[Rfam]
RNA sequence: CACACACCCAUGUGUAUAGGAUCCCAAAGGAUCACCAUUAAAUUUGGCACAGAUCUUUAAAAAAGUUAUCACAUGGGUGUGGGACUUGAUUUUUCUAGAGAUUUAUGCUAAAUUUAAUGGUAAUCUUUUGAGGUCCUACACACAUGGGUGUGGG
Numbered sequence: 001c002a003c004a005c006a007c008c009c010a011u012g013u014g015u016a017u018a019g020g021a022u023c024c025c026a027a028a029g030g031a032u033c034a035c036c037a038u039u040a041a042a043u044u045u046g047g048c049a050c051a052g053a054u055c056u057u058u059a060a061a062a063a064a065g066u067u068a069u070c071a072c073a074u075g076g077g078u079g080u081g082g083g084a085c086u087u088g089a090u091u092u093u094u095c096u097a098g099a100g101a102u103u104u105a106u107g108c109u110a111a112a113u114u115u116a117a118u119g120g121u122a123a124u125c126u127u128u129u130g131a132g133g134u135c136c137u138a139c140a141c142a143c144a145u146g147g148g149u150g151u152g153g154g
Stems, first nucleotide, its partner, number of pairs: 003152011015140001017138007025130004030125003034121016051104009061094008069082005

Source information:
The record is a 154-nucleotide sequence from Amborella trichopoda, which matches "MIR8565 microRNA precursor family" in Rfam. Rfam links the family to the GO terms miRNA-mediated post-transcriptional gene silencing and RISC complex. Pairs were carried over by alignment from the consensus structure, which was predicted with RNAalifold.